Annotation
The family of this 59-nucleotide sequence from Haloechinothrix halophila is "Actino-pnp RNA". The base pairs follow the family's consensus structure, which is taken from published work. The organism belongs to Haloechinothrix halophila, within Bacteria.
[Rfam]
RNA sequence: GCCGGUCCUCGGUAGUGGUUCCCGGGACUCGGUCCCGAGGACUUCGAUCGAUGACCGGC
Numbered sequence: 001g002c003c004g005g006u007c008c009u010c011g012g013u014a015g016u017g018g019u020u021c022c023c024g025g026g027a028c029u030c031g032g033u034c035c036c037g038a039g040g041a042c043u044u045c046g047a048u049c050g051a052u053g054a055c056c057g058g059c
Stems, first nucleotide, its partner, number of pairs: 001059007009051005017043005023037006